[Rfam]
RNA sequence: UUUCCAGUCAUUGGGGAGUAGCCUGUUCCAAAACAUUUUUGGAAAAUUCGUAUCAACAUACUCGUUUGCAACAAAACGUGGUACGAAUGCCUGAAGAGCCUAAUAAAAAUAAGCUCUAAAUCGGUUGGCAAGACCAUAGACACAUGACACCACCAUUGGUUGGGUGUGGGUUAUGUGUAUAUGGAAUCACCCAGCCGAGGCU
Numbered sequence: 001u002u003u004c005c006a007g008u009c010a011u012u013g014g015g016g017a018g019u020a021g022c023c024u025g026u027u028c029c030a031a032a033a034c035a036u037u038u039u040u041g042g043a044a045a046a047u048u049c050g051u052a053u054c055a056a057c058a059u060a061c062u063c064g065u066u067u068g069c070a071a072c073a074a075a076a077c078g079u080g081g082u083a084c085g086a087a088u089g090c091c092u093g094a095a096g097a098g099c100c101u102a103a104u105a106a107a108a109a110u111a112a113g114c115u116c117u118a119a120a121u122c123g124g125u126u127g128g129c130a131a132g133a134c135c136a137u138a139g140a141c142a143c144a145u146g147a148c149a150c151c152a153c154c155a156u157u158g159g160u161u162g163g164g165u166g167u168g169g170g171u172u173a174u175g176u177g178u179a180u181a182u183g184g185a186a187u188c189a190c191c192c193a194g195c196c197g198a199g200g201c202u
Stems, first nucleotide, its partner, number of pairs: 026044003046088010063078005089201004